[Rfam]
RNA sequence: UGUAUGCAUGUAGCGUACGUUGGCAAAGUGCCGAACGUACGCAAUCCUCUUUACCGAAUCGGACGAUCCCGACCAUUUCAUCUUCUUCGAAACGUUCCAGCGCGUCACUUAAUCCGGAGCGCACGCCGCGAGGCAAAUCGCAUUGCGUGAUAUCACCGUUGACGAUAACCGUCACGUUCUCCCCGAGGCGGGUU
Numbered sequence: 001u002g003u004a005u006g007c008a009u010g011u012a013g014c015g016u017a018c019g020u021u022g023g024c025a026a027a028g029u030g031c032c033g034a035a036c037g038u039a040c041g042c043a044a045u046c047c048u049c050u051u052u053a054c055c056g057a058a059u060c061g062g063a064c065g066a067u068c069c070c071g072a073c074c075a076u077u078u079c080a081u082c083u084u085c086u087u088c089g090a091a092a093c094g095u096u097c098c099a100g101c102g103c104g105u106c107a108c109u110u111a112a113u114c115c116g117g118a119g120c121g122c123a124c125g126c127c128g129c130g131a132g133g134c135a136a137a138u139c140g141c142a143u144u145g146c147g148u149g150a151u152a153u154c155a156c157c158g159u160u161g162a163c164g165a166u167a168a169c170c171g172u173c174a175c176g177u178u179c180u181c182c183c184c185g186a187g188g189c190g191g192g193u194u
Base pairs, nucleotide, nucleotide: 002054003053004052006050008048014041015040016039017038018037019036061078062077063076065074067072083112084111093102094101095100114192115191117189120187122185125134126133127132137166138165139164140163144158145157171183174180
Overview: Shown here is a 194-nucleotide sequence from Escherichia coli, a member of the family "Yersinia sRNA 251". By type it is an antisense RNA. For this family Rfam cites "Transcriptomic profiling of Yersinia pseudotuberculosis reveals reprogramming of the Crp regulon by temperature and uncovers Crp as a master regulator of small RNAs" (Nuss et al., PLoS Genet, 2015). Lineage of the source: Bacteria > Pseudomonadota > Gammaproteobacteria > Enterobacteriaceae > Escherichia.